This 377-nucleotide RNA sequence from Hydrogenophaga sp. IBVHS1 belongs to the Rfam family "transfer-messenger RNA". The literature on the family includes a 2010 paper in RNA Biol by Mao et al., "Variations on the tmRNA gene". Lineage of the source: Bacteria > Pseudomonadati > Betaproteobacteria > Burkholderiales > Hydrogenophaga. It scores 192 bits against the family's covariance model.
RNA sequence: GGGGCUGCACCGGUUUCGACGUGGGUUCGGACGCGCAGCAGGGCAUGUCGAGGUUCUGUCACCUCGUAAAUCCGCAGAAAAAAACCAACUGCAAACGACGAACGUUUCGCACUCGCCGCUUAAUCAGCGGUGAGCCUUGCAACAGCAGGCCGAUGGGCUGGGCAAGGGGGUCGCAAGACCUCCCGGCUGCAAGGAUAAUUUCAUCGGCUGGCUUUGCGUCGGGCACCUUGACGCAGGGUGAGAUUCAAGGAUGCUGGCUUCCCAUCUAGCGUGCCACUGCGCGAUUCGGGCGGCGAGACUCAAAUCAGACGGCUACACAUGUAGAACUGCUCGAAGAAGGCUUGCGGACGGGGGUUCAAAUCCCCCCAGCUCCACCA
Number, nucleotide and partner (000 for none) at each position: 001g373002g372003g371004g370005c369006u368007g367008c000009a000010c000011c000012g000013g000014u000015u000016u000017c000018g000019a000020c346021g345022u344023g343024g342025g341026u340027u339028c000029g000030g000031a000032c000033g000034c333035g332036c000037a331038g330039c329040a328041g327042g000043g000044c321045a320046u319047g318048u317049c066050g065051a064052g063053g062054u079055u078056c077057u076058g075059u074060c000061a000062c053063c052064u051065c050066g049067u000068a000069a000070a000071u000072c000073c000074g059075c058076a057077g056078a055079a054080a000081a000082a000083a000084a000085c000086c000087a000088a000089c000090u000091g000092c000093a000094a000095a000096c000097g000098a000099c000100g000101a000102a000103c000104g000105u000106u000107u000108c000109g000110c000111a000112c134113u133114c132115g131116c130117c129118g128119c127120u000121u000122a000123a000124u000125c000126a000127g119128c118129g117130g116131u115132g114133a113134g112135c194136c193137u192138u191139g190140c189141a000142a000143c160144a159145g158146c157147a000148g000149g208150c207151c206152g205153a204154u203155g202156g000157g146158c145159u144160g143161g000162g000163c000164a000165a000166g000167g000168g000169g000170g000171u000172c000173g000174c000175a000176a000177g000178a000179c000180c000181u000182c000183c000184c000185g000186g000187c000188u000189g140190c139191a138192a137193g136194g135195a000196u000197a000198a000199u000200u000201u000202c155203a154204u153205c152206g151207g150208c149209u000210g000211g239212c238213u237214u236215u235216g234217c233218g232219u231220c000221g255222g254223g000224c000225a000226c250227c000228u000229u000230g000231a219232c218233g217234c216235a215236g214237g213238g212239u211240g000241a000242g000243a000244u000245u000246c000247a000248a000249g000250g226251a000252u000253g000254c222255u221256g000257g294258c293259u292260u000261c290262c289263c288264a000265u000266c000267u000268a000269g282270c281271g280272u000273g313274c312275c311276a000277c000278u000279g305280c271281g270282c269283g000284a000285u000286u000287c000288g263289g262290g261291c000292g259293g258294c257295g000296a000297g000298a000299c000300u000301c000302a000303a000304a000305u279306c000307a000308g000309a000310c000311g275312g274313c273314u000315a000316c000317a048318c047319a046320u045321g044322u000323a000324g000325a000326a000327c041328u040329g039330c038331u037332c035333g034334a000335a000336g000337a000338a000339g027340g026341c025342u024343u023344g022345c021346g020347g000348a000349c000350g366351g365352g364353g363354g362355u000356u000357c000358a000359a000360a000361u000362c354363c353364c352365c351366c350367c007368a006369g005370c004371u003372c002373c001374a000375c000376c000377a000